A member of the RNA family "SAM riboswitch aptamer (S box leader)" from Neobacillus vireti, 102 nucleotides long.
The family's consensus secondary structure is taken from published work.
NCBI's taxonomy places the organism under Bacteria, Bacillati, Bacillota, Bacilli, Neobacillus vireti.
[Rfam]
RNA sequence: UUCUUAUCUAGAGUGGCUGAGGAACUGGUCCAAUGAAGCCCGGCAACCUGCAAAGCAAGGUGCCAAUUCCAGCAAAAUGACCUUCAUUUUGGGAGAUAAGGU
Numbered sequence: 001u002u003c004u005u006a007u008c009u010a011g012a013g014u015g016g017c018u019g020a021g022g023a024a025c026u027g028g029u030c031c032a033a034u035g036a037a038g039c040c041c042g043g044c045a046a047c048c049u050g051c052a053a054a055g056c057a058a059g060g061u062g063c064c065a066a067u068u069c070c071a072g073c074a075a076a077a078u079g080a081c082c083u084u085c086a087u088u089u090u091g092g093g094a095g096a097u098a099a100g101g102u
Base pairs, nucleotide, nucleotide: 002101003100004099005098006097007096008095013041015040016039017038021031022030023029025072026071027070028069042064043063044062045061047060048059049057050056051055068094073091074090075089076088077087078086
Dot-bracket structure: .(((((((....(.(((...(((.[[[[)))......))))((((.(((((...))).))))))...(]]]]((((((.......))))))..)))))))).